[Rfam]
RNA sequence: ACGGGCACGGACGCCCGUAGUUCCACGCAGAAUUGAGUUUGAAAACUACCACAGCAUACUCGGAGUUUUCAAACUCAUAGGUUUGGUUUUGACACGGAUGUCAAAACCAAACAUGGA
Numbered sequence: 001a002c003g004g005g006c007a008c009g010g011a012c013g014c015c016c017g018u019a020g021u022u023c024c025a026c027g028c029a030g031a032a033u034u035g036a037g038u039u040u041g042a043a044a045a046c047u048a049c050c051a052c053a054g055c056a057u058a059c060u061c062g063g064a065g066u067u068u069u070c071a072a073a074c075u076c077a078u079a080g081g082u083u084u085g086g087u088u089u090u091g092a093c094a095c096g097g098a099u100g101u102c103a104a105a106a107c108c109a110a111a112c113a114u115g116g117a
Base pairs, nucleotide, nucleotide: 001018002017003016004015005014006013034077035076036075037074038073039072040071041070042069043068044067045066046065047064081112082111083110084109085108086107087106088105089104090103091102092101093100
Record summary
The record is a 117-nucleotide sequence from Treponema phagedenis, which matches "TD-2 RNA" in Rfam. Its Rfam clan is "TD (Treponema denticola) motifs". The match comes from Rfam's covariance-model search (50 bits). The source organism's lineage runs through Bacteria, Pseudomonadati, Spirochaetota, Spirochaetia and Treponema. The family's RNA type in Rfam is small RNA.